[Rfam]
RNA sequence: UGAGUAGUGCGGAUAAUCGCGGCUGCAAUUGCCGAAAGGCAGCAGGUGAGGAAAGUCCGGGCUUCGCAGGGCAGGAUGCCAGAUAACGUCUGGUGGAGGUGACUCCAAGGAUAGUGCAACAGAAAUAAACCGCCUGUUUUACAGGUAAGGGUGGAAAGGCAGUGUAAGAGACUACCGCGUUGCCGGUAACGGCAAUGGUCCAUGUAAACCCCAUCCGAAGCAAGUCCAAGAAAAAGCUAUACGGCUGCCCGUCGUGCUUUUAGGUAGGACGCUUGAGUGUAUCGGCGACGAUGCAACUAGAUAGAUGAUUAUCACACAUUUAUAUGUGGACAUAACCCGGCUUAUAGUGCUGCUCAUUAU
Numbered sequence: 001u002g003a004g005u006a007g008u009g010c011g012g013a014u015a016a017u018c019g020c021g022g023c024u025g026c027a028a029u030u031g032c033c034g035a036a037a038g039g040c041a042g043c044a045g046g047u048g049a050g051g052a053a054a055g056u057c058c059g060g061g062c063u064u065c066g067c068a069g070g071g072c073a074g075g076a077u078g079c080c081a082g083a084u085a086a087c088g089u090c091u092g093g094u095g096g097a098g099g100u101g102a103c104u105c106c107a108a109g110g111a112u113a114g115u116g117c118a119a120c121a122g123a124a125a126u127a128a129a130c131c132g133c134c135u136g137u138u139u140u141a142c143a144g145g146u147a148a149g150g151g152u153g154g155a156a157a158g159g160c161a162g163u164g165u166a167a168g169a170g171a172c173u174a175c176c177g178c179g180u181u182g183c184c185g186g187u188a189a190c191g192g193c194a195a196u197g198g199u200c201c202a203u204g205u206a207a208a209c210c211c212c213a214u215c216c217g218a219a220g221c222a223a224g225u226c227c228a229a230g231a232a233a234a235a236g237c238u239a240u241a242c243g244g245c246u247g248c249c250c251g252u253c254g255u256g257c258u259u260u261u262a263g264g265u266a267g268g269a270c271g272c273u274u275g276a277g278u279g280u281a282u283c284g285g286c287g288a289c290g291a292u293g294c295a296a297c298u299a300g301a302u303a304g305a306u307g308a309u310u311a312u313c314a315c316a317c318a319u320u321u322a323u324a325u326g327u328g329g330a331c332a333u334a335a336c337c338c339g340g341c342u343u344a345u346a347g348u349g350c351u352g353c354u355c356a357u358u359a360u
Base pairs, nucleotide, nucleotide: 001356002355003354004353005352006351007350008349009348010347011345012313013312014311015310016309017308018307020048021047023045024044025043026042053343054342055341057340058339059338060337061336062220063219064218065217069250070249071248072247074216075215076214077213078212079093080092081091082090083089094108095106096105097104098103109211110210114209115208116205117204118203130150131149132146133145134144135143136142137141158176159175161173162172163171177200178197179196180195181194182193183192184191185190224270225269226268227267232261233260234259235258236257237256241255242254243253244252245251278295279294280293281292282291283290284289